[Rfam]
This 544-nucleotide part of an RNA from Meiothermus ruber belongs to the Rfam family "Bacterial large subunit ribosomal RNA".
RNA sequence: UAGAACGGGCACACGGUGGAUGCCCUGGCACCUAAGCCGAUGAAGGACGUGAUUACCUGCGAAAAGCCCGGUGGAGCUGGUAGUAAGCGUUGAUACCGGGAUGUCCGAAUGGGGGAACCCGGCCUGUGGGAACACAGGUCACCACCUAUGAGGUGGGGGGAACCUGGGGAACUGAAACAUCUAAGUACCCAGAGGAGAAGAAAGAGGAAUCGAUUCCCUGAGUAGCGGCGAGCGAAAGGGGAGGAGCCUAAACCGUUGAGCGUGCUCAGCGGGGUUGUGGGGCUGGCGGUAUCGAAGCGGAAGUCUAGUCGAAGGGUUUUGGGAAAGCCCACCAUAGAAGGUGAAAGUCCUGUAGACGAAAGGCGGAGGCUAGUAGCCAGUACCCGAGUAGCCUGUGGUUCGUGGAGCUAUGGGUGAAUCUGCGCGGCCCACCGCGUAAGGCUAAAUACUCUAGGUGACCGAUAGCGGACCAGUACCGUGAGGGAAAGGUGAAAAGAACCCCGGGAGGGGAGUGAAAUAGAACCUGAAACCGUGUGCUUACAAG
Numbered sequence: 001u002a003g004a005a006c007g008g009g010c011a012c013a014c015g016g017u018g019g020a021u022g023c024c025c026u027g028g029c030a031c032c033u034a035a036g037c038c039g040a041u042g043a044a045g046g047a048c049g050u051g052a053u054u055a056c057c058u059g060c061g062a063a064a065a066g067c068c069c070g071g072u073g074g075a076g077c078u079g080g081u082a083g084u085a086a087g088c089g090u091u092g093a094u095a096c097c098g099g100g101a102u103g104u105c106c107g108a109a110u111g112g113g114g115g116a117a118c119c120c121g122g123c124c125u126g127u128g129g130g131a132a133c134a135c136a137g138g139u140c141a142c143c144a145c146c147u148a149u150g151a152g153g154u155g156g157g158g159g160g161a162a163c164c165u166g167g168g169g170a171a172c173u174g175a176a177a178c179a180u181c182u183a184a185g186u187a188c189c190c191a192g193a194g195g196a197g198a199a200g201a202a203a204g205a206g207g208a209a210u211c212g213a214u215u216c217c218c219u220g221a222g223u224a225g226c227g228g229c230g231a232g233c234g235a236a237a238g239g240g241g242a243g244g245a246g247c248c249u250a251a252a253c254c255g256u257u258g259a260g261c262g263u264g265c266u267c268a269g270c271g272g273g274g275u276u277g278u279g280g281g282g283c284u285g286g287c288g289g290u291a292u293c294g295a296a297g298c299g300g301a302a303g304u305c306u307a308g309u310c311g312a313a314g315g316g317u318u319u320u321g322g323g324a325a326a327g328c329c330c331a332c333c334a335u336a337g338a339a340g341g342u343g344a345a346a347g348u349c350c351u352g353u354a355g356a357c358g359a360a361a362g363g364c365g366g367a368g369g370c371u372a373g374u375a376g377c378c379a380g381u382a383c384c385c386g387a388g389u390a391g392c393c394u395g396u397g398g399u400u401c402g403u404g405g406a407g408c409u410a411u412g413g414g415u416g417a418a419u420c421u422g423c424g425c426g427g428c429c430c431a432c433c434g435c436g437u438a439a440g441g442c443u444a445a446a447u448a449c450u451c452u453a454g455g456u457g458a459c460c461g462a463u464a465g466c467g468g469a470c471c472a473g474u475a476c477c478g479u480g481a482g483g484g485a486a487a488g489g490u491g492a493a494a495a496g497a498a499c500c501c502c503g504g505g506a507g508g509g510g511a512g513u514g515a516a517a518u519a520g521a522a523c524c525u526g527a528a529a530c531c532g533u534g535u536g537c538u539u540a541c542a543a544g
Stems, first nucleotide, its partner, number of pairs: 007539010022524001023489002027460002029457006035450002037159002045106003048061003067100007076088003111120003121140007142156006163194001164192005174181002204211002214446001215242005225233002245443004253272007279385003283380005296371003303364004308357003314330004319326001333337001339351003391415009422437005476483002499510004
It is one of the family's seed sequences.